[Rfam]
RNA: mir-676 microRNA precursor family
Organism: Rhinolophus ferrumequinum
RNA sequence: AAUGCAUGACUCUUCAUUCUCAGGACUCGCAGAACGAUGGGAAUGCCGUCCUCAGGUUGAGUUCUGCGCU
Numbered sequence: 001a002a003u004g005c006a007u008g009a010c011u012c013u014u015c016a017u018u019c020u021c022a023g024g025a026c027u028c029g030c031a032g033a034a035c036g037a038u039g040g041g042a043a044u045g046c047c048g049u050c051c052u053c054a055g056g057u058u059g060a061g062u063u064c065u066g067c068g069c070u
Base pairs, nucleotide, nucleotide: 003068004067005066006065010061011060012059015056019055020054022052023051024050025049026048029046030045031044